This 176-nucleotide sequence from Nitrococcus mobilis belongs to the Rfam family "Group II catalytic intron D1-D4-3".
About the family: Group II introns are found in rRNA, tRNA and mRNA of organelles in fungi, plants and protists, and also in mRNA in bacteria.
The family has 406 seed sequences and 4,274 matches in Rfam 15.1.
Rfam's curators put it in the seed alignment.
The source organism's lineage runs through Bacteria, Pseudomonadati, Pseudomonadota, Chromatiales and Nitrococcus mobilis.
RNA sequence: UGACCGGAAACGGAGUGUCUGAAGGAAGCAUGAGGCAGAACCCGUGUACGUAGCGAACAGCGAACCGGCUAUAUGGUGUUGGGGAUGAGGUCGAGCCGACGUGACUAGGCGAGGCCUGAUAUCCGGAGAACUGAACCGACAUGAAGCCGGACGGGAUACGGGGAGGUGGUGCGUCU
Numbered sequence: 001u002g003a004c005c006g007g008a009a010a011c012g013g014a015g016u017g018u019c020u021g022a023a024g025g026a027a028g029c030a031u032g033a034g035g036c037a038g039a040a041c042c043c044g045u046g047u048a049c050g051u052a053g054c055g056a057a058c059a060g061c062g063a064a065c066c067g068g069c070u071a072u073a074u075g076g077u078g079u080u081g082g083g084g085a086u087g088a089g090g091u092c093g094a095g096c097c098g099a100c101g102u103g104a105c106u107a108g109g110c111g112a113g114g115c116c117u118g119a120u121a122u123c124c125g126g127a128g129a130a131c132u133g134a135a136c137c138g139a140c141a142u143g144a145a146g147c148c149g150g151a152c153g154g155g156a157u158a159c160g161g162g163g164a165g166g167u168g169g170u171g172c173g174u175c176u
Stems, first nucleotide, its partner, number of pairs: 004013003028176001030174003036168001041162006047155001049153003065150006076142003080138001083137002086134001089117002092114001095110003